[Rfam]
The family of this 129-nucleotide RNA from Clostridium sp. Maddingley MBC34-26 is "Ribosomal protein L10 leader".
Taxonomically the source falls in Clostridium (Bacteria, Bacillati, Bacillota, Eubacteriales).
This family is a putative r-protein leader autoregulatory structure found in B. subtilis and other low-GC Gram-positive bacteria.
It scores 67 bits against the family's covariance model.
By type it is a cis-regulatory leader.
RNA sequence: AAAAAGAAAAUAAUUUUUCCGUAGACAGUAGGUGCGAAAGCGUAAAGAUAUACUACCUACUUAGGUUAUAUAUAAUAGAUGUUAUUAUAGACCUUCCAUGUCUGCGGGAAGGUCUUUUUUAAUAAAAGA
Numbered sequence: 001a002a003a004a005a006g007a008a009a010a011u012a013a014u015u016u017u018u019c020c021g022u023a024g025a026c027a028g029u030a031g032g033u034g035c036g037a038a039a040g041c042g043u044a045a046a047g048a049u050a051u052a053c054u055a056c057c058u059a060c061u062u063a064g065g066u067u068a069u070a071u072a073u074a075a076u077a078g079a080u081g082u083u084a085u086u087a088u089a090g091a092c093c094u095u096c097c098a099u100g101u102c103u104g105c106g107g108g109a110a111g112g113u114c115u116u117u118u119u120u121a122a123u124a125a126a127a128g129a
Base pairs, nucleotide, nucleotide: 028060029059030058031057032056033055034041035040090114091113092112093111094110095109096108097107